[Rfam]
Shown here is a 258-nucleotide RNA sequence from Medicago truncatula, a member of the family "MIR2655 microRNA precursor family". Pairs were carried over by alignment from the consensus structure, which was predicted with RNAalifold. A search with the family's covariance model found it, with a score of 228 bits. The source organism's lineage runs through Eukaryota, Streptophytina, fabids, Trifolieae and Medicago.
RNA sequence: GGCUUAAAUGUUCUUUUGGUCCCUUAAUUUUAUUUAAAGUAUUAGUUUGGUCCUUUCAGUUAAUUUAAUUCAAAAAAGCGUUAAGUUUAGGGACUAAACUAAAACUAAUUAAAUAAGUUAAAGGACCAAACUAAUACUAAUUAAAUAAGUUAAGAGACCAAAAUUUAACGUUCUUUUGAAUUAAAUUAACAGAAAUGACCAGACUGAUACUUUAAAUAAAGUUAAGGGACCUAAACGGAACUUUUAUUACUUGUGAGA
Numbered sequence: 001g002g003c004u005u006a007a008a009u010g011u012u013c014u015u016u017u018g019g020u021c022c023c024u025u026a027a028u029u030u031u032a033u034u035u036a037a038a039g040u041a042u043u044a045g046u047u048u049g050g051u052c053c054u055u056u057c058a059g060u061u062a063a064u065u066u067a068a069u070u071c072a073a074a075a076a077a078g079c080g081u082u083a084a085g086u087u088u089a090g091g092g093a094c095u096a097a098a099c100u101a102a103a104a105c106u107a108a109u110u111a112a113a114u115a116a117g118u119u120a121a122a123g124g125a126c127c128a129a130a131c132u133a134a135u136a137c138u139a140a141u142u143a144a145a146u147a148a149g150u151u152a153a154g155a156g157a158c159c160a161a162a163a164u165u166u167a168a169c170g171u172u173c174u175u176u177u178g179a180a181u182u183a184a185a186u187u188a189a190c191a192g193a194a195a196u197g198a199c200c201a202g203a204c205u206g207a208u209a210c211u212u213u214a215a216a217u218a219a220a221g222u223u224a225a226g227g228g229a230c231c232u233a234a235a236c237g238g239a240a241c242u243u244u245u246a247u248u249a250c251u252u253g254u255g256a257g258a
Base pairs, nucleotide, nucleotide: 001250014235015234016233018231019230020229022227023226024225025224026223027222028221029220030219031218032217033216034215036213037212038211